[Rfam]
RNA sequence: GUGUAAAUUUCAUAAGUCACUCAUAUAAUCCCGAUAAUAUGGUUCGGGAGUCUCUACCGGAGAACCGUAAAUUCUCCGACUAUGAGUGAGUCGGGCAGUGCU
Number, nucleotide and partner (000 for none) at each position: 001g000002u000003g000004u000005a000006a000007a000008u000009u000010u000011c000012a000013u000014a000015a000016g000017u000018c088019a087020c086021u085022c084023a083024u082025a081026u000027a000028a000029u049030c048031c047032c046033g045034a044035u000036a000037a000038u000039a000040u000041g000042g000043u000044u034045c033046g032047g031048g030049a029050g000051u000052c000053u000054c000055u000056a000057c000058c078059g077060g076061a075062g074063a073064a072065c000066c000067g000068u000069a000070a000071a000072u064073u063074c062075u061076c060077c059078g058079a000080c000081u025082a024083u023084g022085a021086g020087u019088g018089a000090g000091u000092c000093g000094g000095g000096c000097a000098g000099u000100g000101c000102u000
Shown here is a 102-nucleotide sequence from Thermobrachium celere, a member of the family "Purine riboswitch aptamer". About the family: Riboswitches are metabolite binding domains within certain messenger RNAs that serve as precision sensors for their corresponding targets. Rfam links the family to the GO term purine nucleobase biosynthetic process. The match comes from Rfam's covariance-model search (91 bits). The base pairs follow the family's consensus structure, which is taken from published work.